The family of this 72-nucleotide sequence from Magallana gigas is "HDV ribozyme from F. prausnitzii". NCBI's taxonomy places the organism under Eukaryota, Protostomia, Spiralia, Pteriomorphia, Magallana. The literature on the family includes a 2009 paper in Science by Webb et al., "Widespread occurrence of self-cleaving ribozymes". Rfam links the family to the GO term catalytic activity.
[Rfam]
RNA sequence: CCUGCUCAAAAUCCUACUUCCACCUCCCCGUGGUGAGCAGGGGACAACGGACAAUGUCCGGCAAACGGAAGA
Numbered sequence: 001c002c003u004g005c006u007c008a009a010a011a012u013c014c015u016a017c018u019u020c021c022a023c024c025u026c027c028c029c030g031u032g033g034u035g036a037g038c039a040g041g042g043g044a045c046a047a048c049g050g051a052c053a054a055u056g057u058c059c060g061g062c063a064a065a066c067g068g069a070a071g072a
Stems, first nucleotide, its partner, number of pairs: 001041007022034003048060005